RNA sequence: UUUGACGACGAUGAGCCAAUACAGGACCUGUAAUGAAUUGUGAGUAUGAUCGCAAGUUAUUAUGAACAUCAAAGGGACUGAGUCAGU
Number, nucleotide and partner (000 for none) at each position: 001u000002u086003u085004g084005a083006c082007g000008a000009c000010g000011a000012u000013g000014a000015g000016c000017c000018a000019a000020u000021a000022c000023a000024g000025g000026a000027c000028c000029u000030g000031u000032a000033a000034u000035g000036a000037a000038u000039u000040g000041u000042g000043a000044g000045u000046a000047u000048g000049a000050u000051c000052g000053c000054a000055a000056g000057u000058u000059a000060u000061u000062a000063u000064g000065a000066a000067c000068a000069u000070c000071a000072a000073a000074g000075g000076g000077a000078c000079u000080g000081a000082g006083u005084c004085a003086g002087u000